[Rfam]
RNA sequence: AUGGGGAAUCUAUAAAGCUCAGGAGGGAUAGCACCAUGAAUACAUCUUAAUGGCUAUCUAUAGCGCUAUCCAUCCUGAGUUUUAUGGCUUCUUCAU
Numbered sequence: 001a002u003g004g005g006g007a008a009u010c011u012a013u014a015a016a017g018c019u020c021a022g023g024a025g026g027g028a029u030a031g032c033a034c035c036a037u038g039a040a041u042a043c044a045u046c047u048u049a050a051u052g053g054c055u056a057u058c059u060a061u062a063g064c065g066c067u068a069u070c071c072a073u074c075c076u077g078a079g080u081u082u083u084a085u086g087g088c089u090u091c092u093u094c095a096u
Stems, first nucleotide, its partner, number of pairs: 010087001016081009026071007034063001
Rfam assigns this 96-nucleotide sequence from Solanum lycopersicum to the family "MIR390 microRNA precursor family". The family's consensus secondary structure was predicted with WAR. Rfam 15.1 lists 649 matches to the family in 206 species.